[Rfam]
RNA sequence: CUGAGACCGACUAACAACUAAAUGCAGACGGAAGUUAGAGAGAAUCAGAAGGAAGAGACCAGAGGGAGAAAAGCGUUUCUAAGAGUCGACGAUAAAAAAGAGCUUAGAGACCCACCAAGGAAAUAAGAGAAAAAUUUCCAAGGAGCUAAAGAAAUUCUCACUUUAGACCCCAAAGGAACUCGAACUAAGA
Number, nucleotide and partner (000 for none) at each position: 001c048002u047003g046004a045005g000006a000007c000008c000009g000010a000011c038012u037013a036014a035015c034016a000017a000018c000019u000020a000021a000022a000023u000024g000025c000026a000027g000028a000029c000030g000031g000032a000033a000034g015035u014036u013037a012038g011039a000040g000041a000042g000043a000044a000045u004046c003047a002048g001049a000050a000051g000052g000053a000054a000055g000056a000057g000058a000059c000060c175061a000062g000063a000064g171065g170066g000067a000068g000069a000070a000071a000072a000073g000074c000075g111076u110077u109078u108079c107080u106081a105082a104083g103084a000085g000086u000087c000088g000089a000090c000091g000092a000093u000094a000095a000096a000097a000098a000099a000100g000101a000102g000103c083104u082105u081106a080107g079108a078109g077110a076111c075112c000113c000114a000115c000116c000117a000118a000119g139120g000121a137122a136123a135124u134125a000126a000127g159128a158129g157130a156131a155132a000133a000134a124135u123136u122137u121138c000139c119140a000141a000142g000143g000144a000145g000146c166147u165148a164149a163150a162151g161152a000153a000154a000155u131156u130157c129158u128159c127160a000161c151162u150163u149164u148165a147166g146167a000168c000169c000170c065171c064172a000173a000174a000175g060176g000177a000178a000179c000180u000181c000182g000183a000184a000185c000186u000187a000188a000189g000190a000
A member of the RNA family "IMES-1 RNA motif", 190 nucleotides long. Pairs were carried over by alignment from the consensus structure, which is taken from published work. The literature on the family includes a 2009 paper in Nature by Weinberg et al., "Exceptional structured noncoding RNAs revealed by bacterial metagenome analysis".